[Rfam]
RNA sequence: GAGAGGAGCAGGACUUGGCUCGCUCAGUGAACAGUUCAGUGAAAGCCUAUGUUCACAGUGGCUAAGUUCCGUUCCUCAC
Numbered sequence: 001g002a003g004a005g006g007a008g009c010a011g012g013a014c015u016u017g018g019c020u021c022g023c024u025c026a027g028u029g030a031a032c033a034g035u036u037c038a039g040u041g042a043a044a045g046c047c048u049a050u051g052u053u054c055a056c057a058g059u060g061g062c063u064a065a066g067u068u069c070c071g072u073u074c075c076u077c078a079c
Stems, first nucleotide, its partner, number of pairs: 011069010027056007

The record is a 79-nucleotide sequence from Mola mola, which matches "mir-27 microRNA precursor family" in Rfam. Pairs were carried over by alignment from the consensus structure, which was predicted with RNAalifold. Gene Ontology terms of the family: RISC complex and miRNA-mediated post-transcriptional gene silencing.